[Rfam]
This 98-nucleotide RNA from Thermopolyspora flexuosa belongs to the Rfam family "TPP riboswitch aptamer (THI element)". A search with the family's covariance model found it, with a score of 68 bits.
RNA sequence: CCUUUUGACGCGGGGUGCCCGGCAUGUCCGGGCUGAGAUCACACCCGUUGAACCUGAUCUAGUUAGGACUAGCGGAGGGAACGUCACGUGGCAGGGGC
Numbered sequence: 001c002c003u004u005u006u007g008a009c010g011c012g013g014g015g016u017g018c019c020c021g022g023c024a025u026g027u028c029c030g031g032g033c034u035g036a037g038a039u040c041a042c043a044c045c046c047g048u049u050g051a052a053c054c055u056g057a058u059c060u061a062g063u064u065a066g067g068a069c070u071a072g073c074g075g076a077g078g079g080a081a082c083g084u085c086a087c088g089u090g091g092c093a094g095g096g097g098c
Base pairs, nucleotide, nucleotide: 006086007085008084009083010082011047012046013045014044016041017033018032019031020030021029053078054077055076059072060071061070062069